[Rfam]
RNA sequence: ACCUGUUGCGGGUGGCAGCUGAGGGUGCCCGCAGCACACGACAGAAACACGUGCCCAUAGGAACAAAUGGGCACUUCAGGGCGUU
Numbered sequence: 001a002c003c004u005g006u007u008g009c010g011g012g013u014g015g016c017a018g019c020u021g022a023g024g025g026u027g028c029c030c031g032c033a034g035c036a037c038a039c040g041a042c043a044g045a046a047a048c049a050c051g052u053g054c055c056c057a058u059a060g061g062a063a064c065a066a067a068u069g070g071g072c073a074c075u076u077c078a079g080g081g082c083g084u085u
Stems, first nucleotide, its partner, number of pairs: 004036011016023001051074006

Notes:
Rfam assigns this 85-nucleotide RNA sequence from Streptomyces hygroscopicus to the family "nrdJ RNA". The family's consensus secondary structure is taken from published work.